[Rfam]
RNA sequence: GGAAGUGUGUGCUAGUGAUGGCACAGCUGAACAUUGAUCGCUAAACGUUAGAAAUAUGGCAGAUCUGCUCAGUGGGUGUUGUCACGUGGUCGCUUUCAAGUAGCUUGUGUUCGACUCCCGAUUGCGCGUGCAAGUUCGUGGUUUGAUUCAUCUCGGAUUUGCACGCCUGCACGGUUGAGUCUUCACGUCGCUCCUCGAACUACCGCGAUUUCCAAAUUGGGGGGCAAUCGAAUAGGUCAGACGAGGUUAAUAAUUUAUCGCUUCCAUAUACAGGCGCUGCAGAUAAGCAGCAUGCCAUGUUUUUUUC
Numbered sequence: 001g002g003a004a005g006u007g008u009g010u011g012c013u014a015g016u017g018a019u020g021g022c023a024c025a026g027c028u029g030a031a032c033a034u035u036g037a038u039c040g041c042u043a044a045a046c047g048u049u050a051g052a053a054a055u056a057u058g059g060c061a062g063a064u065c066u067g068c069u070c071a072g073u074g075g076g077u078g079u080u081g082u083c084a085c086g087u088g089g090u091c092g093c094u095u096u097c098a099a100g101u102a103g104c105u106u107g108u109g110u111u112c113g114a115c116u117c118c119c120g121a122u123u124g125c126g127c128g129u130g131c132a133a134g135u136u137c138g139u140g141g142u143u144u145g146a147u148u149c150a151u152c153u154c155g156g157a158u159u160u161g162c163a164c165g166c167c168u169g170c171a172c173g174g175u176u177g178a179g180u181c182u183u184c185a186c187g188u189c190g191c192u193c194c195u196c197g198a199a200c201u202a203c204c205g206c207g208a209u210u211u212c213c214a215a216a217u218u219g220g221g222g223g224g225c226a227a228u229c230g231a232a233u234a235g236g237u238c239a240g241a242c243g244a245g246g247u248u249a250a251u252a253a254u255u256u257a258u259c260g261c262u263u264c265c266a267u268a269u270a271c272a273g274g275c276g277c278u279g280c281a282g283a284u285a286a287g288c289a290g291c292a293u294g295c296c297a298u299g300u301u302u303u304u305u306u307c
Stems, first nucleotide, its partner, number of pairs: 001265007015085005027072003032067002036065004040060004273296003276291005
Dot-bracket structure: (((((((.......(((((.......(((..((..((((((((.............)))).))))))..)))........))))).............................................................................................................................................................................))))))).......((((((((......)))))..)))...........

Overview:
Shown here is a 307-nucleotide RNA sequence from Eufriesea mexicana, a member of the family "Arthropod 7SK RNA". It scores 152 bits against the family's covariance model. The family is grouped with related families in Rfam's "7SK clan". The base pairs follow the family's consensus structure, which is taken from published work. NCBI's taxonomy places the organism under Eukaryota, Panarthropoda, Aculeata, Apidae, Eufriesea.